[Rfam]
RNA sequence: GGCCGGGUAGCGCGUCUGUCGAACAACAGCCCGAAAGGGCUAAGGCAGCGGGCCGUCUAGUGUCGGUGUUCAAGUACCUGGCCGCCCCUCC
Number, nucleotide and partner (000 for none) at each position: 001g083002g082003c081004c080005g079006g078007g077008u076009a075010g000011c000012g000013c050014g049015u000016c048017u047018g000019u045020c044021g000022a000023a000024c000025a000026a000027c000028a000029g040030c039031c038032c000033g000034a000035a000036a000037g000038g031039g030040c029041u000042a000043a000044g020045g019046c000047a017048g016049c014050g013051g000052g067053c066054c065055g064056u000057c000058u000059a000060g000061u000062g000063u000064c055065g054066g053067u052068g000069u000070u000071c000072a000073a000074g000075u009076a008077c007078c006079u005080g004081g003082c002083c001084g000085c000086c000087c000088c000089u000090c000091c000
RNA: sRNA-Xcc1
Organism: Chromobacterium violaceum